[Rfam]
RNA sequence: GCGCGCCGGCACCUUGGCUCUAGACUGCUUACUGCCCGGGCCGCCCUCAGUAACAGUCUCCAGUCACGGCCACCGACGCCUG
Number, nucleotide and partner (000 for none) at each position: 001g000002c000003g000004c000005g000006c000007c000008g000009g000010c000011a000012c069013c068014u000015u066016g065017g064018c063019u000020c000021u000022a000023g058024a057025c056026u055027g054028c000029u053030u052031a051032c050033u049034g000035c000036c000037c000038g000039g000040g000041c000042c000043g000044c000045c000046c000047u000048c000049a033050g032051u031052a030053a029054c027055a026056g025057u024058c023059u000060c000061c000062a000063g018064u017065c016066a015067c000068g013069g012070c000071c000072a000073c000074c000075g000076a000077c000078g000079c000080c000081u000082g000